[Rfam]
RNA sequence: CAAACGGCUCCUUUAGGAGCCAACCAAUUUUAAAAAGUGAAUGAUA
Numbered sequence: 001c002a003a004a005c006g007g008c009u010c011c012u013u014u015a016g017g018a019g020c021c022a023a024c025c026a027a028u029u030u031u032a033a034a035a036a037g038u039g040a041a042u043g044a045u046a
Base pairs, nucleotide, nucleotide: 006021007020008019009018010017011016
The family of this 46-nucleotide RNA from Actinia tenebrosa is "Histone 3' UTR stem-loop". It is annotated as a cis-regulatory element. The source organism's lineage runs through Eukaryota, Metazoa, Actiniaria, Actiniidae and Actinia.